[Rfam]
RNA sequence: GAGCCAUUAGCUCAGUUGGUAGAGCAUCUGACUUUUAAUCAGAGGGUCGAAGGUUCGAGUCCUUCAUGGCUCA
Numbered sequence: 001g002a003g004c005c006a007u008u009a010g011c012u013c014a015g016u017u018g019g020u021a022g023a024g025c026a027u028c029u030g031a032c033u034u035u036u037a038a039u040c041a042g043a044g045g046g047u048c049g050a051a052g053g054u055u056c057g058a059g060u061c062c063u064u065c066a067u068g069g070c071u072c073a
Stems, first nucleotide, its partner, number of pairs: 001072007010025004027043005049065005